Background: Rfam assigns this 85-nucleotide RNA from Methylococcus sp. EFPC2 to the family "c-di-GMP-I riboswitch aptamer". A search with the family's covariance model found it, with a score of 78 bits. Lineage of the source: Bacteria > Pseudomonadati > Methylococcales > Methylococcaceae > Methylococcus.
[Rfam]
RNA sequence: ACCUGAAAAAGGCAAAACCACCGAAAGGUGGCGACGCAAAGUUACCGGUCUACGGGAGAAAUCCUACGACAGCGGGAUUGCCAGC
Numbered sequence: 001a002c003c004u005g006a007a008a009a010a011g012g013c014a015a016a017a018c019c020a021c022c023g024a025a026a027g028g029u030g031g032c033g034a035c036g037c038a039a040a041g042u043u044a045c046c047g048g049u050c051u052a053c054g055g056g057a058g059a060a061a062u063c064c065u066a067c068g069a070c071a072g073c074g075g076g077a078u079u080g081c082c083a084g085c
Stems, first nucleotide, its partner, number of pairs: 012037002018031005040079004045075003048070003055064003